Description: This 31-nucleotide sequence from Olea europaea belongs to the Rfam family "Iron response element II". The source organism's lineage runs through Eukaryota, Streptophytina, Euphyllophyta, Oleeae and Olea europaea. The family's RNA type in Rfam is cis-regulatory element. Rfam 15.1 lists 5,197 matches to the family in 722 species. On this family, see Koeller et al., Proc Natl Acad Sci U S A 1989: "A cytosolic protein binds to structural elements within the iron regulatory region of the transferrin receptor mRNA". IRE, TFRC, SLC40A1, SDHB, SLC11A2, CDC42BPA, ACO2, ALAS2_H.SAPIENS, CDC14A, EPAS1, ALAS2, qoxD, Hao1, NDUFS1, transferrin, Aconitate.
RNA sequence: ACAUCAUCUGCAGCAGCGACUGCAAUGAUCC
Numbered sequence: 001a002c003a004u005c006a007u008c009u010g011c012a013g014c015a016g017c018g019a020c021u022g023c024a025a026u027g028a029u030c031c
Stems, first nucleotide, its partner, number of pairs: 003029005009024005014018001